[Rfam]
RNA sequence: GGGCCCGUUUUGGCACUAGCACAUUUUUGCUUUGGUCUCUCUGCGUUGAGCAAUUAUGUGUAGUGCCAAUAUGGGAGA
Number, nucleotide and partner (000 for none) at each position: 001g000002g000003g000004c075005c074006c073007g072008u071009u000010u069011u068012g067013g066014c065015a064016c063017u062018a000019g061020c060021a059022c058023a057024u056025u000026u000027u053028u052029g051030c050031u049032u048033u000034g000035g000036u000037c000038u000039c000040u000041c000042u000043g000044c000045g000046u000047u000048g032049a031050g030051c029052a028053a027054u000055u000056a024057u023058g022059u021060g020061u019062a017063g016064u015065g014066c013067c012068a011069a010070u000071a008072u007073g006074g005075g004076a000077g000078a000
Shown here is a 78-nucleotide sequence from Eudromia elegans, a member of the family "mir-96 microRNA precursor family". Pairs were carried over by alignment from the consensus structure, which was predicted with RNAalifold. A reference for the family is Houbaviy et al. (2003), "Embryonic stem cell-specific MicroRNAs", Dev Cell. NCBI's taxonomy places the organism under Eukaryota, Teleostomi, Sarcopterygii, Coelurosauria, Eudromia. Its family is annotated with RISC complex and miRNA-mediated post-transcriptional gene silencing in the Gene Ontology.